Background:
A member of the RNA family "Small nucleolar RNA snoR53Y" from Ensete ventricosum, 79 nucleotides long. The family has 7 seed sequences and 513 matches in Rfam 15.1. Lineage of the source: Eukaryota > Streptophyta > Spermatophyta > Liliopsida > Ensete. The base pairs follow the family's consensus structure, which was predicted with WAR. The literature on the family includes a 2001 paper in RNA by Brown et al., "Multiple snoRNA gene clusters from Arabidopsis". Gene Ontology terms of the family: nucleolus and RNA processing. The family is grouped with related families in Rfam's "snoR53 clan".
Nucleotides: 079
Base pairs, nucleotide, nucleotide: 001078002077003076005075006074
Number, partner (000 for none) and nucleotide at each position: 001078g002077c003076u004000u005075c006074c007000c008000a009000a010000u011000g012000a013000u014000g015000c016000c017000u018000a019000u020000g021000u022000g023000g024000a025000c026000c027000a028000u029000g030000c031000u032000a033000a034000u035000g036000c037000u038000g039000a040000a041000a042000u043000g044000c045000u046000u047000u048000g049000a050000a051000g052000g053000a054000g055000u056000u057000c058000u059000g060000u061000u062000c063000c064000a065000u066000a067000u068000u069000c070000u071000g072000a073000g074006g075005g076003g077002g078001c079000c

Record summary
It scores 44 bits against the family's covariance model.